[Rfam]
RNA sequence: UUCUUAUCAAGAGAGAUGGAGGGACUGGCCCUAAGAAAUCUCGGCAGCGGAACAUAAUGUUACUGUGCCAAAUCCAGCAAGCGUAGCUUUGAUAGAUAAGUG
Number, nucleotide and partner (000 for none) at each position: 001u102002u000003c100004u099005u098006a097007u096008c095009a000010a000011g000012a000013g042014a041015g040016a039017u038018g000019g000020a000021g031022g030023g029024a000025c077026u076027g075028g074029c023030c022031c021032u000033a000034a000035g000036a000037a000038a017039u016040c015041u014042c013043g069044g068045c067046a066047g000048c065049g064050g000051a061052a060053c059054a058055u000056a000057a000058u054059g053060u052061u051062a000063c000064u049065g048066u046067g045068c044069c043070a000071a000072a000073u094074c028075c027076a026077g025078c091079a090080a089081g088082c000083g000084u000085a000086g000087c000088u081089u080090u079091g078092a000093u000094a073095g008096a007097u006098a005099a004100g003101u000102g001
The family of this 102-nucleotide sequence from Caryophanon tenue is "SAM riboswitch aptamer (S box leader)".